[Rfam]
RNA sequence: GUGGCAGCUUCGUUGUUGUAUAUGCGGCGCCAUUUAACUUGAACCUUUAGUAGUGACAUCACAUAUACGGCAACUAAGCUGCUAC
Numbered sequence: 001g002u003g004g005c006a007g008c009u010u011c012g013u014u015g016u017u018g019u020a021u022a023u024g025c026g027g028c029g030c031c032a033u034u035u036a037a038c039u040u041g042a043a044c045c046u047u048u049a050g051u052a053g054u055g056a057c058a059u060c061a062c063a064u065a066u067a068c069g070g071c072a073a074c075u076a077a078g079c080u081g082c083u084a085c
Base pairs, nucleotide, nucleotide: 002084003083004082005081006080007079015071016070017069018068019067020066021065022064024062026060027059029057031055032054033053037051038050